[Rfam]
RNA sequence: UUCUCGCUCAAAGAAUCGCAUUCGAAGCACUCGUACAGAGAGGUCCUUACCGGCUUCUCGGCUAGCAAUAGCCAUUCUUGCUUUGGGAGAAAGUCCCCGGACACCCUUCAAUUAUGAAGGAUUGCGGAAACGCGCCGCCAUAGAAGCAACACAGCGGCUUCUCUUCUACCAAUUCUCUUUCACUUCCUCCACCCUCAUGCCGUUUGUACCGCAAUUUCACCGACCUUGAGAUCUUGGCUCUUUGCUGAGGAGACCACAUGGAUGAUGAUAUGAGUCCGAGCUCCGACUGCGAGGUUUCUUGGGACUGAUUGACGUGGAUUUGUGGGAGGUAUGUGGACUGUUCUUGGAGUGUUGGGGAUGUUCUGGUCGUUGAGGUUUUUUCGUCGAGAUUGAUAGUUAUGCGAUUGCCUCUCUUACUACUUAGGUAGCGAGUGUGGUAACUCGAUGGGGCUUAUUCUUGAUGCGAGA
Numbered sequence: 001u002u003c004u005c006g007c008u009c010a011a012a013g014a015a016u017c018g019c020a021u022u023c024g025a026a027g028c029a030c031u032c033g034u035a036c037a038g039a040g041a042g043g044u045c046c047u048u049a050c051c052g053g054c055u056u057c058u059c060g061g062c063u064a065g066c067a068a069u070a071g072c073c074a075u076u077c078u079u080g081c082u083u084u085g086g087g088a089g090a091a092a093g094u095c096c097c098c099g100g101a102c103a104c105c106c107u108u109c110a111a112u113u114a115u116g117a118a119g120g121a122u123u124g125c126g127g128a129a130a131c132g133c134g135c136c137g138c139c140a141u142a143g144a145a146g147c148a149a150c151a152c153a154g155c156g157g158c159u160u161c162u163c164u165u166c167u168a169c170c171a172a173u174u175c176u177c178u179u180u181c182a183c184u185u186c187c188u189c190c191a192c193c194c195u196c197a198u199g200c201c202g203u204u205u206g207u208a209c210c211g212c213a214a215u216u217u218c219a220c221c222g223a224c225c226u227u228g229a230g231a232u233c234u235u236g237g238c239u240c241u242u243u244g245c246u247g248a249g250g251a252g253a254c255c256a257c258a259u260g261g262a263u264g265a266u267g268a269u270a271u272g273a274g275u276c277c278g279a280g281c282u283c284c285g286a287c288u289g290c291g292a293g294g295u296u297u298c299u300u301g302g303g304a305c306u307g308a309u310u311g312a313c314g315u316g317g318a319u320u321u322g323u324g325g326g327a328g329g330u331a332u333g334u335g336g337a338c339u340g341u342u343c344u345u346g347g348a349g350u351g352u353u354g355g356g357g358a359u360g361u362u363c364u365g366g367u368c369g370u371u372g373a374g375g376u377u378u379u380u381u382c383g384u385c386g387a388g389a390u391u392g393a394u395a396g397u398u399a400u401g402c403g404a405u406u407g408c409c410u411c412u413c414u415u416a417c418u419a420c421u422u423a424g425g426u427a428g429c430g431a432g433u434g435u436g437g438u439a440a441c442u443c444g445a446u447g448g449g450g451c452u453u454a455u456u457c458u459u460g461a462u463g464c465g466a467g468a
Base pairs, nucleotide, nucleotide: 002468003467004466005465006464007463008461009460010459011458014406015405016404017403018402019401022087023085024084025083026082027081028080038059039058040057041056042055043054044053091453092452093451095450096449097448098447123134124133125132126131198213199212200211202209203208215373216372221369222368223367224366225365230363231362233360242357243356245354340350341349342348343347408437409436411434413432414431415430
RNA: RNase MRP
Organism: Cadophora malorum